[Rfam]
RNA sequence: UAAAUUAUACGUGAUGGUGUUCGCGGUUAACUAUCGAAAGAUUGAUGACACCUACCCUCUA
Numbered sequence: 001u002a003a004a005u006u007a008u009a010c011g012u013g014a015u016g017g018u019g020u021u022c023g024c025g026g027u028u029a030a031c032u033a034u035c036g037a038a039a040g041a042u043u044g045a046u047g048a049c050a051c052c053u054a055c056c057c058u059c060u061a
Stems, first nucleotide, its partner, number of pairs: 010025004016052006033042003
The family of this 61-nucleotide RNA sequence from Liquorilactobacillus capillatus is "Fluoride riboswitch aptamer (crcB RNA motif)".
Gene Ontology terms of the family: positive regulation of gene expression and response to fluoride.
Taxonomically the source falls in Liquorilactobacillus capillatus (Bacteria, Bacillota, Lactobacillales, Liquorilactobacillus).